[Rfam]
RNA sequence: CUCUUGGGUUACUAAUGAAGGCCCCUGGUGAGCCCACAGCAUUUUCCUUGUACAAUCAGGCCCCCAGUGGGUGGUGCUGCUUGCCUGGAGCCCUAGAGGAUUAUACAAUCAGCAGGUUAAGUGGGGUGAGGAUACCUGGGA
Numbered sequence: 001c002u003c004u005u006g007g008g009u010u011a012c013u014a015a016u017g018a019a020g021g022c023c024c025c026u027g028g029u030g031a032g033c034c035c036a037c038a039g040c041a042u043u044u045u046c047c048u049u050g051u052a053c054a055a056u057c058a059g060g061c062c063c064c065c066a067g068u069g070g071g072u073g074g075u076g077c078u079g080c081u082u083g084c085c086u087g088g089a090g091c092c093c094u095a096g097a098g099g100a101u102u103a104u105a106c107a108a109u110c111a112g113c114a115g116g117u118u119a120a121g122u123g124g125g126g127u128g129a130g131g132a133u134a135c136c137u138g139g140g141a
Stems, first nucleotide, its partner, number of pairs: 002140002005138005012131002020127001022125003056095001059092003062088002067084007
RNA: small Cajal body-specific RNA 17
Organism: Castor canadensis